This 120-nucleotide RNA sequence from Devosia sp. Root685 belongs to the Rfam family "Rhizobiales sRNA Atu_C8". Lineage of the source: Bacteria > Pseudomonadota > Alphaproteobacteria > Devosiaceae > Devosia. It scores 60 bits against the family's covariance model.
RNA sequence: GUCCCGUGCGGGCACUCAUUCUCGUAGUAGGUAGGCGCAUCGGCAACGUGGGAUAAAAUCCCGCGCGAUAGCUGGUGCGCCGAACACAGGUCCCGAAAGGGGCCUUUUUUAUUGCCUUUU
Dot-bracket structure: ......(.(.................).)((((((((((((((...(((((((.....)))))))......))))))))))....(.(((((((....))))))))......))))....